[Rfam]
RNA sequence: AGCUUUGCGCAGUGGCAGUAUCGUAGCCAAUGAGGUUUAUCCGAGGCGCGAUUAUUGCUAAUUGAAAACUUUUCAACUGUUUUUAAAGUUUUUAGACUUGUUAGUCUGGGGAUGACACUUAGCUUUUAUUCUUCCCAAACUGGA
Numbered sequence: 001a002g003c004u005u006u007g008c009g010c011a012g013u014g015g016c017a018g019u020a021u022c023g024u025a026g027c028c029a030a031u032g033a034g035g036u037u038u039a040u041c042c043g044a045g046g047c048g049c050g051a052u053u054a055u056u057g058c059u060a061a062u063u064g065a066a067a068a069c070u071u072u073u074c075a076a077c078u079g080u081u082u083u084u085a086a087a088g089u090u091u092u093u094a095g096a097c098u099u100g101u102u103a104g105u106c107u108g109g110g111g112a113u114g115a116c117a118c119u120u121a122g123c124u125u126u127u128a129u130u131c132u133u134c135c136c137a138a139a140c141u142g143g144a
Base pairs, nucleotide, nucleotide: 020052021051022050023049024048026047027046028045034042035041086120087119088118089112090111091110092109093108094107095106096105097104098103133144134143135142
Rfam assigns this 144-nucleotide sequence from Neomonachus schauinslandi to the family "U4 spliceosomal RNA". The match comes from Rfam's covariance-model search (82 bits). It is annotated as a spliceosomal small nuclear RNA. Rfam's curators write: U4 small nuclear RNA (U4 snRNA) is a component of the major U2-dependent spliceosome.